[Rfam]
Shown here is an 87-nucleotide sequence from Halobacteroides halobius, a member of the family "ZMP/ZTP riboswitch aptamer (pfl RNA motif)". Gene Ontology terms of the family: one-carbon metabolic process and regulation of purine nucleotide biosynthetic process. Pairs were carried over by alignment from the consensus structure, which is taken from published work.

RNA sequence: AAAGGAUUAUACGACUGGCGGACAAACAUGGAAUUAACCAUGGGGAAGUAUAAUCCUAAUAAUAAAUCGCCCGCCUGGAUGAUAGUA
Numbered sequence: 001a002a003a004g005g006a007u008u009a010u011a012c013g014a015c016u017g018g019c020g021g022a023c024a025a026a027c028a029u030g031g032a033a034u035u036a037a038c039c040a041u042g043g044g045g046a047a048g049u050a051u052a053a054u055c056c057u058a059a060u061a062a063u064a065a066a067u068c069g070c071c072c073g074c075c076u077g078g079a080u081g082a083u084a085g086u087a
Stems, first nucleotide, its partner, number of pairs: 003057010015045002017075005028041004066080003
Dot-bracket structure: ..((((((((((..(([[[[[......((((......))))..))..))))))))))........(((..]]]]]..))).......